[Rfam]
RNA: Bacterial large subunit ribosomal RNA, nucleotides 1679 to 2017
Organism: Thermaurantimonas aggregans
RNA sequence: CGAGUGAGUCGUGGCUAAGGAACUAGGCAAAUUGACCCCGUAACUUCGGGAUAAGGGGACCCUGACGGAGACGUUGGGGCGCAGAGAAAUGGCCCAGGCGACUGUUUAUCAAAAACACAGGACUCUGCGAAUUCGAAAGAAGAAGUAUAGGGUCUGACACCUGCCCGGUGCCGGAAGGUUAAGAGGAGGGGUUAGCCUUAAGGCGAAGCUCUGAAUUGAAGCCCCGGUAAACGGCGGCCGUAACUAUAACGGUCCUAAGGUAGCGAAAUUCCUUGUCGGGUAAGUUCCGACCUGCACGAAUGGUGUAACGAUCUGGGCACUGUCUCAGCCACGAGCUCG
Numbered sequence: 001c002g003a004g005u006g007a008g009u010c011g012u013g014g015c016u017a018a019g020g021a022a023c024u025a026g027g028c029a030a031a032u033u034g035a036c037c038c039c040g041u042a043a044c045u046u047c048g049g050g051a052u053a054a055g056g057g058g059a060c061c062c063u064g065a066c067g068g069a070g071a072c073g074u075u076g077g078g079g080c081g082c083a084g085a086g087a088a089a090u091g092g093c094c095c096a097g098g099c100g101a102c103u104g105u106u107u108a109u110c111a112a113a114a115a116c117a118c119a120g121g122a123c124u125c126u127g128c129g130a131a132u133u134c135g136a137a138a139g140a141a142g143a144a145g146u147a148u149a150g151g152g153u154c155u156g157a158c159a160c161c162u163g164c165c166c167g168g169u170g171c172c173g174g175a176a177g178g179u180u181a182a183g184a185g186g187a188g189g190g191g192u193u194a195g196c197c198u199u200a201a202g203g204c205g206a207a208g209c210u211c212u213g214a215a216u217u218g219a220a221g222c223c224c225c226g227g228u229a230a231a232c233g234g235c236g237g238c239c240g241u242a243a244c245u246a247u248a249a250c251g252g253u254c255c256u257a258a259g260g261u262a263g264c265g266a267a268a269u270u271c272c273u274u275g276u277c278g279g280g281u282a283a284g285u286u287c288c289g290a291c292c293u294g295c296a297c298g299a300a301u302g303g304u305g306u307a308a309c310g311a312u313c314u315g316g317g318c319a320c321u322g323u324c325u326c327a328g329c330c331a332c333g334a335g336c337u338c339g
Stems, first nucleotide, its partner, number of pairs: 001339004009334008018325003036058004044049001060079008080084001092318007099310002103117003120155008128145001132141003158305004163235003168232002170228005177223003183217002188212005195204002236254006255259001265292001275291006